[Rfam]
RNA sequence: CGGUAUUCUCGGGUAAUGACAGUGUUCAAGUGCGUGUUAUUGCUUGAGAAUACAAAU
Number, nucleotide and partner (000 for none) at each position: 001c000002g000003g053004u052005a051006u050007u049008c048009u000010c000011g000012g044013g043014u042015a041016a040017u039018g038019a037020c036021a035022g000023u000024g000025u000026u000027c000028a000029a000030g000031u000032g000033c000034g000035u021036g020037u019038u018039a017040u016041u015042g014043c013044u012045u000046g000047a000048g008049a007050a006051u005052a004053c003054a000055a000056a000057u000

mir-234 microRNA precursor family: a 57-nucleotide RNA from Panagrellus redivivus.
Rfam links the family to the GO terms RISC complex and miRNA-mediated post-transcriptional gene silencing.
The sequence is in the family's curated seed alignment.
NCBI's taxonomy places the organism under Eukaryota, Metazoa, Nematoda, Tylenchina, Panagrellus.